The record is a 167-nucleotide RNA sequence from Panicum miliaceum, which matches "MIR2118 microRNA precursor family" in Rfam. Pairs were carried over by alignment from the consensus structure, which was predicted with RNAalifold.
RNA sequence: GUCAGGAAGAGAAAGAAUGAGAUGGCCUGAGAGCAGUGGGAAUGGGAACAUGGAGGAAAGCCAAACUUGACUGUAUAAUCCUCCAACAAUGGAGGAUGAAUUUGGUUUGAGCUUUCCCAAUGCCUCUCAUUCCUAUUACUCUUGAGCACUCCUUCCUCCUUUUUGCU
Numbered sequence: 001g002u003c004a005g006g007a008a009g010a011g012a013a014a015g016a017a018u019g020a021g022a023u024g025g026c027c028u029g030a031g032a033g034c035a036g037u038g039g040g041a042a043u044g045g046g047a048a049c050a051u052g053g054a055g056g057a058a059a060g061c062c063a064a065a066c067u068u069g070a071c072u073g074u075a076u077a078a079u080c081c082u083c084c085a086a087c088a089a090u091g092g093a094g095g096a097u098g099a100a101u102u103u104g105g106u107u108u109g110a111g112c113u114u115u116c117c118c119a120a121u122g123c124c125u126c127u128c129a130u131u132c133c134u135a136u137u138a139c140u141c142u143u144g145a146g147c148a149c150u151c152c153u154u155c156c157u158c159c160u161u162u163u164u165g166c167u
Stems, first nucleotide, its partner, number of pairs: 009158002015155003021151002026146001028144006035137001037135011049122003053118001055117007